A member of the RNA family "Plant signal recognition particle RNA" from Gossypium australe, 306 nucleotides long. The family has 63 seed sequences and 4,988 matches in Rfam 15.1. By type it is a non-coding RNA gene. The family's consensus secondary structure is taken from published work. Taxonomically the source falls in Gossypium (Eukaryota, Viridiplantae, Spermatophyta, eudicotyledons).
RNA sequence: CGAGUUGGGUAACGCCUGCUUGAGACCUACGUGGGGCCUCUAAGGUGGUUGGACUUUGGAUCCACUCAUUGAGUCAGAUCUAUAGUUGCUGUAAUCUGGCUUGCCCGUUCCACGCAAGGAGUUGGGCUACGGGUCUUGCGCGAAAGCUUAGGGUCUCGUUGCUCCAAGAGUGGUAGGCAAAGCAUGAGGCUGGUUUCACAGAGCACAGCUAUAUCUUCCCUCUCUUUGCAGUUGAAGGAUAACGGGCCGGUGUCACUUGGAUCCUUCAUGGCUCCUUGGGUCCUCCCUAAACGGAUAACCGCUUUU
Dot-bracket structure: (((((.((......)).))))....(((....)))).....((((((((((..(.(((((.....(((..(((((.((((((..((.(.((....((((((((.((.(((.(.((((((((..((((.((((((((((.((....)).))))).))))).))))(....).((.(((...(...(....(((......)))......)...).))).))..))))))))..).)))))....))))))))))).)).))))))......)))))..)))....))..)))..)..)))))))))).